[Rfam]
RNA sequence: AAUUUAUUAGGGAAUGAAGUACUCCCUUGACUUUUGUCUAAACCGCUUAUUAAGCUAAUGACUUCUGCAUUUUG
Number, nucleotide and partner (000 for none) at each position: 001a000002a000003u000004u000005u000006a000007u000008u000009a000010g026011g025012g024013a023014a000015u000016g065017a064018a063019g062020u061021a000022c000023u013024c012025c011026c010027u000028u000029g000030a000031c000032u000033u000034u000035u000036g000037u000038c000039u000040a000041a000042a000043c000044c000045g055046c054047u053048u000049a000050u000051u000052a000053a047054g046055c045056u000057a000058a000059u000060g000061a020062c019063u018064u017065c016066u000067g000068c000069a000070u000071u000072u000073u000074g000
A member of the RNA family "Fluoride riboswitch aptamer (crcB RNA motif)" from Clostridium sartagoforme, 74 nucleotides long.
The organism belongs to Clostridium, within Bacteria.
A search with the family's covariance model found it, with a score of 45 bits.